[Rfam]
RNA sequence: UUCAACCACCUGUGCCAGACUGUCCCGGCCACCCCCCUCCGGGUGUGCUCGGUCGACGGGCUGGCAGUUCGUCCCACCCAUGGAGCCAUCAAAUCCCCAUGAUGUCAAUCUUCCGGUCGACAGGUUGAAGAGCAAGUCGGCACGCUCUCGCAGCGCCUGAAUUCGCCGCGAGGUUGGAGUUCGGUGACGGAGACGUGCCAGGGCGACUGAUUCCUGAUCCUUUUGCUGAGGCCGUCGGCCGGUGAAGUCGGGGACAAACCCAGUCCAGCCUACAUGC
Numbered sequence: 001u002u003c004a005a006c007c008a009c010c011u012g013u014g015c016c017a018g019a020c021u022g023u024c025c026c027g028g029c030c031a032c033c034c035c036c037c038u039c040c041g042g043g044u045g046u047g048c049u050c051g052g053u054c055g056a057c058g059g060g061c062u063g064g065c066a067g068u069u070c071g072u073c074c075c076a077c078c079c080a081u082g083g084a085g086c087c088a089u090c091a092a093a094u095c096c097c098c099a100u101g102a103u104g105u106c107a108a109u110c111u112u113c114c115g116g117u118c119g120a121c122a123g124g125u126u127g128a129a130g131a132g133c134a135a136g137u138c139g140g141c142a143c144g145c146u147c148u149c150g151c152a153g154c155g156c157c158u159g160a161a162u163u164c165g166c167c168g169c170g171a172g173g174u175u176g177g178a179g180u181u182c183g184g185u186g187a188c189g190g191a192g193a194c195g196u197g198c199c200a201g202g203g204c205g206a207c208u209g210a211u212u213c214c215u216g217a218u219c220c221u222u223u224u225g226c227u228g229a230g231g232c233c234g235u236c237g238g239c240c241g242g243u244g245a246a247g248u249c250g251g252g253g254a255c256a257a258a259c260c261c262a263g264u265c266c267a268g269c270c271u272a273c274a275u276g277c
Base pairs, nucleotide, nucleotide: 006127008125009124010123011122012121013120014065015064016063017062018061021058022057023056024055025052026051027050032045034043035042036041074119076117077116078115081107082106083105085103087101139199140198141197142196143195144194154186155185156184157183159182160181161180162179163178164177166173167172202270203269204268205265206264207263208262209261218254219253220252221251222250225248226247227246230240231239232238233237
RNA: A. fumigatus sRNA Afu_309